[Rfam]
RNA sequence: GGAGCAGCGAAGAAUUAGUUGCGAAACUGAUUGACUGACGGCGGGAGAGAUCCCGCCGUU
Numbered sequence: 001g002g003a004g005c006a007g008c009g010a011a012g013a014a015u016u017a018g019u020u021g022c023g024a025a026a027c028u029g030a031u032u033g034a035c036u037g038a039c040g041g042c043g044g045g046a047g048a049g050a051u052c053c054c055g056c057c058g059u060u
Stems, first nucleotide, its partner, number of pairs: 004022005010016002037060009
RNA: Acido-1 RNA
Organism: Candidatus Korobacter versatilis